[Rfam]
RNA sequence: UUUGGUGUGAUGAUGAGGGUGUUCUUGUGGACUAGAGUUUCUGAUUUGGUCUUACGAAUGCCUUAAAAACUGAAGAUUAAUCUCUUGGCUGUCUGGAGCACCAAU
Numbered sequence: 001u002u003u004g005g006u007g008u009g010a011u012g013a014u015g016a017g018g019g020u021g022u023u024c025u026u027g028u029g030g031a032c033u034a035g036a037g038u039u040u041c042u043g044a045u046u047u048g049g050u051c052u053u054a055c056g057a058a059u060g061c062c063u064u065a066a067a068a069a070c071u072g073a074a075g076a077u078u079a080a081u082c083u084c085u086u087g088g089c090u091g092u093c094u095g096g097a098g099c100a101c102c103a104a105u
Base pairs, nucleotide, nucleotide: 002104003103004102005101006100007099008098038075039074040073041072045068046067047066
Small nucleolar RNA Z157/R69/R10: a 105-nucleotide RNA sequence from Dioscorea zingiberensis. On this family, see Chen et al., Nucleic Acids Res 2003: "The high diversity of snoRNAs in plants: identification and comparative study of 120 snoRNA genes from Oryza sativa". The source organism's lineage runs through Eukaryota, Embryophyta, Euphyllophyta, Petrosaviidae and Dioscorea. The base pairs follow the family's consensus structure, which was predicted with PFOLD.